Annotation:
A member of the RNA family "c-di-GMP-I-GGC riboswitch aptamer" from Vibrio sp. 99-8-1, 83 nucleotides long.
RNA sequence: CACGAUCAGGGCAAACCAUUUGAAAAGAUGGGACGCAAAGCCUCCGGCCUUAACAUUUUUGAAAGGUAGCGGGGUUGCCGAAG
Number, nucleotide and partner (000 for none) at each position: 001c083002a000003c080004g079005a000006u000007c000008a000009g000010g000011g036012c035013a000014a000015a000016c031017c030018a029019u028020u027021u026022g000023a000024a000025a000026a021027g020028a019029u018030g017031g016032g000033a000034c069035g012036c011037a000038a000039a076040g075041c074042c073043u000044c072045c071046g070047g067048c066049c065050u064051u063052a000053a000054c000055a000056u000057u000058u000059u000060u000061g000062a000063a051064a050065g049066g048067u047068a000069g034070c046071g045072g044073g042074g041075u040076u039077g000078c000079c004080g003081a000082a000083g001